[Rfam]
RNA: Fluoride riboswitch aptamer (crcB RNA motif)
Organism: Anaeromicropila populeti
RNA sequence: UAAUAGCAUGGGAAUGAAGUUCUCCCUUGGUACAUACCAAAACCGCAAUUAUGCUGAUGACUUCUGUGAAUGA
Numbered sequence: 001u002a003a004u005a006g007c008a009u010g011g012g013a014a015u016g017a018a019g020u021u022c023u024c025c026c027u028u029g030g031u032a033c034a035u036a037c038c039a040a041a042a043c044c045g046c047a048a049u050u051a052u053g054c055u056g057a058u059g060a061c062u063u064c065u066g067u068g069a070a071u072g073a
Stems, first nucleotide, its partner, number of pairs: 010026004016064006045054003